The record is a 106-nucleotide sequence from Limoniibacter endophyticus, which matches "Glycine riboswitch aptamer" in Rfam.
The source organism's lineage runs through Bacteria, Pseudomonadota, Alphaproteobacteria, Hyphomicrobiales and Limoniibacter.
It scores 47 bits against the family's covariance model.

RNA sequence: CGACAACUCUGGAAAGUCGGCCAGCAUCCAAACUGGCCGCGCCGAAGGUGUAAGCGUCUGUAUUCUGCAUACGCAAGUCUCUCAGGCUUCAGACAGAGGGGCACGA
Number, nucleotide and partner (000 for none) at each position: 001c000002g000003a000004c101005a000006a000007c098008u097009c096010u095011g094012g000013a000014a000015a000016g000017u000018c039019g038020g037021c036022c035023a034024g033025c000026a000027u000028c000029c000030a000031a000032a000033c024034u023035g022036g021037c020038c019039g018040c000041g087042c086043c085044g083045a082046a000047g000048g081049u000050g079051u000052a000053a000054g074055c073056g072057u071058c000059u000060g000061u000062a000063u000064u000065c000066u000067g000068c000069a000070u000071a057072c056073g055074c054075a000076a000077g000078u000079c050080u000081c048082u045083c044084a000085g043086g042087c041088u000089u000090c000091a000092g000093a000094c011095a010096g009097a008098g007099g000100g000101g004102c000103a000104c000105g000106a000